[Rfam]
RNA sequence: UUGCAAGUUCAAGGCCAUUGCAGAAGUAUUCACAGCACGGCCUGUCAGAUUCAAAUGAAUCUCCAAAUUCUGUU
Numbered sequence: 001u002u003g004c005a006a007g008u009u010c011a012a013g014g015c016c017a018u019u020g021c022a023g024a025a026g027u028a029u030u031c032a033c034a035g036c037a038c039g040g041c042c043u044g045u046c047a048g049a050u051u052c053a054a055a056u057g058a059a060u061c062u063c064c065a066a067a068u069u070c071u072g073u074u
Base pairs, nucleotide, nucleotide: 013042014041015040016039020073021072022071023070024069025068026038027037047062048061049060050059051058052057
The family of this 74-nucleotide RNA sequence from Alligator sinensis is "Mammalian CPEB3 ribozyme". The mammalian CPEB3 ribozyme is a self cleaving RNA located in the second intron of the CPEB3 gene which belongs to a family of genes regulating messenger RNA polyadenylation. NCBI's taxonomy places the organism under Eukaryota, Chordata, Euteleostomi, Crocodylia, Alligator.